A member of the RNA family "pan motif" from Halalkalibacter hemicellulosilyticus, 93 nucleotides long. NCBI's taxonomy places the organism under Bacteria, Bacillati, Bacilli, Bacillaceae, Halalkalibacter hemicellulosilyticus. Rfam classes the family as a cis-regulatory element.

[Rfam]
RNA sequence: AGGGCGGUAUUAGUCAUAAACUGCACCUAUACGAGGAAUAAAAUAAAAAGAAAAAAUCAAUCUGCCUUGAUCAAGAUUGACUGGGACAGAGGA
Numbered sequence: 001a002g003g004g005c006g007g008u009a010u011u012a013g014u015c016a017u018a019a020a021c022u023g024c025a026c027c028u029a030u031a032c033g034a035g036g037a038a039u040a041a042a043a044u045a046a047a048a049a050g051a052a053a054a055a056a057u058c059a060a061u062c063u064g065c066c067u068u069g070a071u072c073a074a075g076a077u078u079g080a081c082u083g084g085g086a087c088a089g090a091g092g093a
Stems, first nucleotide, its partner, number of pairs: 001028003004024005010019002062089003065085003069081001071080003